[Rfam]
A member of the RNA family "Purine riboswitch aptamer" from Clostridium thermopalmarium, 102 nucleotides long. Rfam's curators write: Riboswitches are metabolite binding domains within certain messenger RNAs that serve as precision sensors for their corresponding targets. NCBI's taxonomy places the organism under Bacteria, Bacillota, Clostridia, Clostridium, Clostridium thermopalmarium.
RNA sequence: AAAAUAUCUUUUUAUUUAACUCAUAUAAAUCCGAUAAUAUGGUUCGGAAGUUUCUACAGGAAAACCUUAAAUUUUUCUACUAUGAGUAAGCUUAGCUACGAU
Numbered sequence: 001a002a003a004a005u006a007u008c009u010u011u012u013u014a015u016u017u018a019a020c021u022c023a024u025a026u027a028a029a030u031c032c033g034a035u036a037a038u039a040u041g042g043u044u045c046g047g048a049a050g051u052u053u054c055u056a057c058a059g060g061a062a063a064a065c066c067u068u069a070a071a072u073u074u075u076u077c078u079a080c081u082a083u084g085a086g087u088a089a090g091c092u093u094a095g096c097u098a099c100g101a102u
Stems, first nucleotide, its partner, number of pairs: 019087007030048005058078007

Record summary
The family's consensus secondary structure is taken from published work.